[Rfam]
RNA sequence: CGUCAGUUUCAGGGUUUGGUGAAAUUCCUUACUGGCGGUAACGACAGCGCUAGCGAACAUAAUGGCGCACAUGCGAAGCCCGCGACCCGCGAAAGCGGCUGAUUCGGUGAGAUUCCGAGGCCAACGGUUACAGUCCGGAUGGAAGAAACGAGGC
Numbered sequence: 001c002g003u004c005a006g007u008u009u010c011a012g013g014g015u016u017u018g019g020u021g022a023a024a025u026u027c028c029u030u031a032c033u034g035g036c037g038g039u040a041a042c043g044a045c046a047g048c049g050c051u052a053g054c055g056a057a058c059a060u061a062a063u064g065g066c067g068c069a070c071a072u073g074c075g076a077a078g079c080c081c082g083c084g085a086c087c088c089g090c091g092a093a094a095g096c097g098g099c100u101g102a103u104u105c106g107g108u109g110a111g112a113u114u115c116c117g118a119g120g121c122c123a124a125c126g127g128u129u130a131c132a133g134u135c136c137g138g139a140u141g142g143a144a145g146a147a148a149c150g151a152g153g154c
Base pairs, nucleotide, nucleotide: 003152006149007148008147009146010145018028019027031134032133033123034122035083036082037081038080078121079120087098088097103119104118105117106116107115125137126136127135